[Rfam]
RNA sequence: GUGUGUAUUGACAGGUGGUGGAACAAAUAUGAGUUUAUACACUAAUUAAAAAAACAAACAAACUCAUAUUAGUUCUACCUCCUGCUGAAGCACACA
Numbered sequence: 001g002u003g004u005g006u007a008u009u010g011a012c013a014g015g016u017g018g019u020g021g022a023a024c025a026a027a028u029a030u031g032a033g034u035u036u037a038u039a040c041a042c043u044a045a046u047u048a049a050a051a052a053a054a055c056a057a058a059c060a061a062a063c064u065c066a067u068a069u070u071a072g073u074u075c076u077a078c079c080u081c082c083u084g085c086u087g088a089a090g091c092a093c094a095c096a
Stems, first nucleotide, its partner, number of pairs: 001095003005091002008088003012084004017079008026070011
MIR9560 microRNA precursor family: a 96-nucleotide sequence from Microthlaspi erraticum. Its family is annotated with miRNA-mediated post-transcriptional gene silencing and RISC complex in the Gene Ontology. Rfam 15.1 lists 23 matches to the family in 13 species. The match comes from Rfam's covariance-model search (95 bits).